[Rfam]
RNA: sraA
RNA sequence: UUGUAUCUGAGUAUAUGGGGAUGUUUACCAGGGAUUCAACGCAAACAACAACAGAAAAAAAAAUGGGAGAUAAAAUCCCCCAUUUUAUUGAUAA
Number, nucleotide and partner (000 for none) at each position: 001u000002u000003g000004u000005a000006u000007c000008u038009g000010a036011g035012u034013a000014u000015a000016u032017g000018g000019g029020g028021a000022u000023g000024u000025u000026u000027a000028c020029c019030a000031g000032g016033g000034a012035u011036u010037c000038a008039a000040c000041g000042c000043a000044a000045a000046c000047a000048a000049c000050a000051a000052c000053a000054g000055a000056a000057a000058a000059a000060a000061a085062a084063a083064u082065g081066g080067g079068a000069g077070a076071u075072a000073a000074a000075a071076u070077c069078c000079c067080c066081c065082a064083u063084u062085u061086u000087a000088u000089u000090g000091a000092u000093a000094a000